[Rfam]
A member of the RNA family "Small nucleolar RNA SNORA74" from Physeter macrocephalus, 204 nucleotides long. From the family's description: U19 belongs to the H/ACA class of snoRNAs. snoRNAs bind a number of proteins (including dyskerin, Gar1p and Nop10p in the case of the H/ACA class) to form snoRNP complexes. This class are thought to guide the sites of modification of uridines to pseudouridines by forming direct base pairing interactions with substrate RNAs. Targets may include ribosomal and spliceosomal RNAs but the exact functions of many snoRNAs, including U19, are not confirmed. Co-precipitation of U19 snoRNA with RNase MRP RNA suggests that U19 may be involved in pre-rRNA processing.
RNA sequence: UCCAGCAGUAGUCAGCUGUCAGGACAGAACCAUUCCUGUAACAGUGUUACACUGCUGGGAGAGCAGUGUUCUGUCUUCUUCCUCCAGUUGCCUCCGUCACUGUUCUGGUGACAUCUGGCACUGGAUGAGGGCAGCACUGUGCUUCCUUGAGAGUGUACUAAGCAUUCACUUUGGCUGCUUAGUUCUAGUCUGGGAGCAGACACA
Numbered sequence: 001u002c003c004a005g006c007a008g009u010a011g012u013c014a015g016c017u018g019u020c021a022g023g024a025c026a027g028a029a030c031c032a033u034u035c036c037u038g039u040a041a042c043a044g045u046g047u048u049a050c051a052c053u054g055c056u057g058g059g060a061g062a063g064c065a066g067u068g069u070u071c072u073g074u075c076u077u078c079u080u081c082c083u084c085c086a087g088u089u090g091c092c093u094c095c096g097u098c099a100c101u102g103u104u105c106u107g108g109u110g111a112c113a114u115c116u117g118g119c120a121c122u123g124g125a126u127g128a129g130g131g132c133a134g135c136a137c138u139g140u141g142c143u144u145c146c147u148u149g150a151g152a153g154u155g156u157a158c159u160a161a162g163c164a165u166u167c168a169c170u171u172u173g174g175c176u177g178c179u180u181a182g183u184u185c186u187a188g189u190c191u192g193g194g195a196g197c198a199g200a201c202a203c204a
Stems, first nucleotide, its partner, number of pairs: 001059009011050002015045005020038005068137002071134006082127001085124001088120001091117001096112006140198007155185001157183001159181006